[Rfam]
RNA sequence: UAGAUGUUGCAGUGCUACUUCCAUUAACAUACCUCCUCAUUGAAGAAUAUGAUCUUCAUUAUAUUCCAGGACAUAUAGUAUGAGAGGCAAUCAGAGGGCGCUACCAUGCAAACUAGGAUUGUCUGCUCAUGCACAGAACCAACUACCGAUAACUAACAGUGCAUGAAGGUUAGUUAUUCCUAAUUAAUUGAACCGAGGCCACGCGGAGUACGAUCGAGGGUACAGUUCACUGGACUUAAUUGUCACAUACAAUUACAACCACUACAGAGAAACCUAAAGGUCUGUACUAGUUUACUAGGUGUAGCAGACGCUCCAGAGAUUGGGAGAAAGCGCUGUAGAGGGGAAUAAUUGUAUAGGGGUAAUCAAGGGAAAUUAAUUUGGCUUAAAUUGGGGUAGUUAGC
Dot-bracket structure: ............................................(((((((.....))...)))))..............((((((((((((..((...((......))...))..)))))))).))))............((((((((((((((((...........))))))))))((..((((((.((((....(((.((((.....))..))..)))...))))..........((((((..(((((((((...((.((((((............((((((.((((....)))).....)))))).(((..........)))......)))))).))....)))))))))...))))))........))))))..))..........))))))....
Rfam assigns this 401-nucleotide RNA sequence from Houbara coronavirus UAE-HKU28 to the family "Deltacoronavirus 3'UTR".
On this family, see Sola et al., RNA Biol 2011: "RNA-RNA and RNA-protein interactions in coronavirus replication and transcription".
Rfam describes the family as follows. There are two smaller hairpins and the hypervariable region (HVR) present in the 3' UTR of deltacoronaviruses. The pseudoknot structure which is typical for alpha- and betacoronaviruses has not been predicted in deltacoronaviruses thus far.
The pairing is the family consensus, mapped onto this sequence.
Rfam classes the family as a cis-regulatory element.